[Rfam]
RNA sequence: AAGCUGUCGCAUGACUGGCGGAUGACGUGGGUGACCACGGGGGAGUGCGACAGUGGGAGAGCCGGCCGCCUGGGCACUUGAA
Numbered sequence: 001a002a003g004c005u006g007u008c009g010c011a012u013g014a015c016u017g018g019c020g021g022a023u024g025a026c027g028u029g030g031g032u033g034a035c036c037a038c039g040g041g042g043g044a045g046u047g048c049g050a051c052a053g054u055g056g057g058a059g060a061g062c063c064g065g066c067c068g069c070c071u072g073g074g075c076a077c078u079u080g081a082a
Base pairs, nucleotide, nucleotide: 003054004053005052006051007050008049009048010047011046012045015042016041017070018069019068020067021066027038028037029036030035059077061075062074063073
The record is an 82-nucleotide sequence from Alicyclobacillus acidocaldarius, which matches "ZMP/ZTP riboswitch aptamer (pfl RNA motif)" in Rfam.
The family's consensus secondary structure is taken from published work.